[Rfam]
RNA sequence: CAAAAUGCGACGACGGAGAGAAGUAGCAUCGGCAGACGGUCAAAGAGAGCGCGGAUAGGUGUGAGCCGCGUACACGAGCCCUUGUGAAUAACACUCCCGAGCAGCAAACCCAAAGGCCUCCGGCCGAGUAGGAGAGACGGGAACGCCCGUUACAGCGUCAGAGGGAUCGCGGGCCUAUGCCUGCGGUAAUUCAGGUGGCACCGCGGAAGUCAGCUUUCGUCCUGUAU
Numbered sequence: 001c002a003a004a005a006u007g008c009g010a011c012g013a014c015g016g017a018g019a020g021a022a023g024u025a026g027c028a029u030c031g032g033c034a035g036a037c038g039g040u041c042a043a044a045g046a047g048a049g050c051g052c053g054g055a056u057a058g059g060u061g062u063g064a065g066c067c068g069c070g071u072a073c074a075c076g077a078g079c080c081c082u083u084g085u086g087a088a089u090a091a092c093a094c095u096c097c098c099g100a101g102c103a104g105c106a107a108a109c110c111c112a113a114a115g116g117c118c119u120c121c122g123g124c125c126g127a128g129u130a131g132g133a134g135a136g137a138c139g140g141g142a143a144c145g146c147c148c149g150u151u152a153c154a155g156c157g158u159c160a161g162a163g164g165g166a167u168c169g170c171g172g173g174c175c176u177a178u179g180c181c182u183g184c185g186g187u188a189a190u191u192c193a194g195g196u197g198g199c200a201c202c203g204c205g206g207a208a209g210u211c212a213g214c215u216u217u218c219g220u221c222c223u224g225u226a227u
Stems, first nucleotide, its partner, number of pairs: 007102002015097004026085003031080001039073002049071006105136001110132002138149003166187007192224004203220005
T-box leader: a 227-nucleotide sequence from Ruminococcaceae bacterium FB2012. A search with the family's covariance model found it, with a score of 106 bits. Rfam classes the family as a cis-regulatory leader. Lineage of the source: Bacteria > Bacillati > Bacillota > Eubacteriales > Oscillospiraceae.